[Rfam]
RNA: skipping-rope RNA
RNA sequence: AAUCUCCAGAGGACGGAACAGGCAGCCGUCGCCCGUCAAAAGACGUUAGGAGAUGCAGGAUGGUCACCCUGCCGGAGAUU
Numbered sequence: 001a002a003u004c005u006c007c008a009g010a011g012g013a014c015g016g017a018a019c020a021g022g023c024a025g026c027c028g029u030c031g032c033c034c035g036u037c038a039a040a041a042g043a044c045g046u047u048a049g050g051a052g053a054u055g056c057a058g059g060a061u062g063g064u065c066a067c068c069c070u071g072c073c074g075g076a077g078a079u080u
Stems, first nucleotide, its partner, number of pairs: 001080007009073001012030005021065003032050001034045004055072005